Shown here is a 152-nucleotide RNA sequence from Tumebacillus algifaecis, a member of the family "c-di-AMP riboswitch aptamer (ydaO/yuaA leader)". It scores 89 bits against the family's covariance model.
RNA sequence: AUGCAUACUAUGCCGAAUCUUGUCGAUAUAACUGAUGCGAUGAGUACGGGGGACGCAUUACUUUGGGGUGAAUGUUCUACCGAUUUUUAGAGCAAGGGAAAUCCUCUUCCCGAACCCGUCAACUAACCUCGGAGGCGCAGGAGGAGGGUAUU
Dot-bracket structure: ..........((((....(((((((............)))))))..(((((....((......))(((.....((((((........))))))..((((........))))...))).........)))))..))))...............
Rfam links the family to the GO terms cyclic-di-AMP binding and regulation of gene expression.